[Rfam]
RNA sequence: UUGCUUGGGAAGUUUGAAGAGAGUCCCUGGCGGUGAAGCAACGCAGGUUCUCCUGGCGUGUCUUGGUGCAGCAGAUGUUCCCUCCCUCAUCUGUCUGCGAUGCGCCCCCCUUGCCUCGCUCGUCGACGCGACCAGCGAGGCAUUUU
Numbered sequence: 001u002u003g004c005u006u007g008g009g010a011a012g013u014u015u016g017a018a019g020a021g022a023g024u025c026c027c028u029g030g031c032g033g034u035g036a037a038g039c040a041a042c043g044c045a046g047g048u049u050c051u052c053c054u055g056g057c058g059u060g061u062c063u064u065g066g067u068g069c070a071g072c073a074g075a076u077g078u079u080c081c082c083u084c085c086c087u088c089a090u091c092u093g094u095c096u097g098c099g100a101u102g103c104g105c106c107c108c109c110c111u112u113g114c115c116u117c118g119c120u121c122g123u124c125g126a127c128g129c130g131a132c133c134a135g136c137g138a139g140g141c142a143u144u145u146u
Stems, first nucleotide, its partner, number of pairs: 055106008071094007113141008123131002
Background
The record is a 146-nucleotide sequence from Sinorhizobium alkalisoli, which matches "Rhizobiales sRNA Atu_C7" in Rfam. Pairs were carried over by alignment from the consensus structure, which was predicted with WAR. The organism belongs to Sinorhizobium, within Bacteria. It is annotated as a small RNA. The match comes from Rfam's covariance-model search (60 bits). A reference for the family is Wilms et al. (2012), "Deep sequencing uncovers numerous small RNAs on all four replicons of the plant pathogen Agrobacterium tumefaciens", RNA Biol.